[Rfam]
RNA sequence: GAACUAUGCCUCUAGGGUUCCGAUUCUGGCCAGUUGCUCAAGGUUGAGCUGAGGCUAGACUGCUGGUCCGAGAGAGGCAGGCUAGUGGUUUUCAGCUUGUUUUGAGUAAGCGUAAGCCUAGCUACACGGCGGGAAAAAAGCCCGGGAGGA
Numbered sequence: 001g002a003a004c005u006a007u008g009c010c011u012c013u014a015g016g017g018u019u020c021c022g023a024u025u026c027u028g029g030c031c032a033g034u035u036g037c038u039c040a041a042g043g044u045u046g047a048g049c050u051g052a053g054g055c056u057a058g059a060c061u062g063c064u065g066g067u068c069c070g071a072g073a074g075a076g077g078c079a080g081g082c083u084a085g086u087g088g089u090u091u092u093c094a095g096c097u098u099g100u101u102u103u104g105a106g107u108a109a110g111c112g113u114a115a116g117c118c119u120a121g122c123u124a125c126a127c128g129g130c131g132g133g134a135a136a137a138a139a140g141c142c143c144g145g146g147a148g149g150a
Base pairs, nucleotide, nucleotide: 007079008078009077010076011075012074015069016068020066021065022063023061025059026058027057028056029055030054031053080123081122082121083120084119085118125145127148131143132142133141
The record is a 150-nucleotide sequence from Pegethrix bostrychoides, which matches "Guanidine-I riboswitch aptamer" in Rfam. The literature on the family includes a 2017 paper in Mol Cell by Nelson et al., "Metabolism of Free Guanidine in Bacteria Is Regulated by a Widespread Riboswitch Class". It scores 69 bits against the family's covariance model.